[Rfam]
RNA sequence: AUUAGCCUGCUGUGUGCGUCACAUCGAAUAUGUUUUGAGCCAACACUAUUACAUUGGGAACCCGGAGUUUACCCGCGGAGCACAUGCCAUUUAUGGACUUGCAAAGCGGGUAGCAGGGUACCCACCUGCGAGCGCAGGUUUCAAAACACUCGAUUAAGACGGCACGGCGGGUUUUUA
Numbered sequence: 001a002u003u004a005g006c007c008u009g010c011u012g013u014g015u016g017c018g019u020c021a022c023a024u025c026g027a028a029u030a031u032g033u034u035u036u037g038a039g040c041c042a043a044c045a046c047u048a049u050u051a052c053a054u055u056g057g058g059a060a061c062c063c064g065g066a067g068u069u070u071a072c073c074c075g076c077g078g079a080g081c082a083c084a085u086g087c088c089a090u091u092u093a094u095g096g097a098c099u100u101g102c103a104a105a106g107c108g109g110g111u112a113g114c115a116g117g118g119u120a121c122c123c124a125c126c127u128g129c130g131a132g133c134g135c136a137g138g139u140u141u142c143a144a145a146a147c148a149c150u151c152g153a154u155u156a157a158g159a160c161g162g163c164a165c166g167g168c169g170g171g172u173u174u175u176u177a
Base pairs, nucleotide, nucleotide: 004173005172006171007170008169009168010167011166012165013164014163015162017161018160019159031148032147033146034145036143037142038141039139040138041137056123057122058121060119061118062117063116065114070112071111072110073109074108075107076106082100087096088095